[Rfam]
RNA sequence: UUUGUGAGCCUCUAGGGUUCCGAUUCUUCCUAAUGGUUGUCCUCAUUAGUUUGAAGUAUGGCUGGUCCGAGAGAGGCAGGUUAGGGAAGCAGUGCUGCUCUUAAGCAUCGAGUUUCUGCUUUGUCUGAUUACACGGCGGGAUAAAAGCCCGGGAGAU
Numbered sequence: 001u002u003u004g005u006g007a008g009c010c011u012c013u014a015g016g017g018u019u020c021c022g023a024u025u026c027u028u029c030c031u032a033a034u035g036g037u038u039g040u041c042c043u044c045a046u047u048a049g050u051u052u053g054a055a056g057u058a059u060g061g062c063u064g065g066u067c068c069g070a071g072a073g074a075g076g077c078a079g080g081u082u083a084g085g086g087a088a089g090c091a092g093u094g095c096u097g098c099u100c101u102u103a104a105g106c107a108u109c110g111a112g113u114u115u116c117u118g119c120u121u122u123g124u125c126u127g128a129u130u131a132c133a134c135g136g137c138g139g140g141a142u143a144a145a146a147g148c149c150c151g152g153g154a155g156a157u
Stems, first nucleotide, its partner, number of pairs: 008077005015068002020065002022062001023059002026056003079130007132152001134155001138150003
Shown here is a 157-nucleotide RNA from Leptolyngbyaceae cyanobacterium M65_K2018_010, a member of the family "Guanidine-I riboswitch aptamer". From the family's description: This family represents a conserved RNA structure found upstream of the ykkC and yxkD genes in Bacillus subtilis and related genes in other bacteria. Lineage of the source: Bacteria > Bacillati > Cyanobacteriota > Leptolyngbyales > Leptolyngbyaceae.